[Rfam]
RNA sequence: AUGACAGUUGUGGGAGAGAGCACGUUUAAAACGCCACCGAAGGAGCAAGUUCCAAAAAAACCCUUGGAAUAAAUCUCUCAGGUAGAUGGAACUACAACUGGACG
Dot-bracket structure: .....((((((((......((...........)).(((((..(((...(((((((........)))))))....))))).)))........)))))))).....
This 104-nucleotide RNA from Neobacillus cucumis belongs to the Rfam family "Glycine riboswitch aptamer". Lineage of the source: Bacteria > Bacillati > Bacillota > Bacillaceae > Neobacillus. Rfam's curators write: This family represents the bacterial glycine riboswitch. Glycine riboswitches usually consist of two metabolite-binding aptamers domains with similar structures in tandem. The aptamers cooperatively bind glycine to regulate the expression of downstream genes.